Vault RNA: a 95-nucleotide sequence from Silurus meridionalis. The base pairs follow the family's consensus structure, which is taken from published work. Rfam classes the family as a non-coding RNA gene. From the family's description: This family of RNAs are found as part of the enigmatic vault ribonucleoprotein complex. The complex consists of a major vault protein (MVP), two minor vault proteins (VPARP and TEP1), and several small untranslated RNA molecules. It has been suggested that the vault complex is involved in drug resistance. The match comes from Rfam's covariance-model search (64 bits).
RNA sequence: GCGUCAGCUUAGCCAAGCGGUUACUUCGGAAUUGAUUUCAUCAAUUAUAAAUCGGGGAAACCCGGUUCGAACCGCAGGUGCUGUCUGACGUUUUA
Dot-bracket structure: .((((((....(((..((((....(((((.....................................))))))))).))).....)))))).....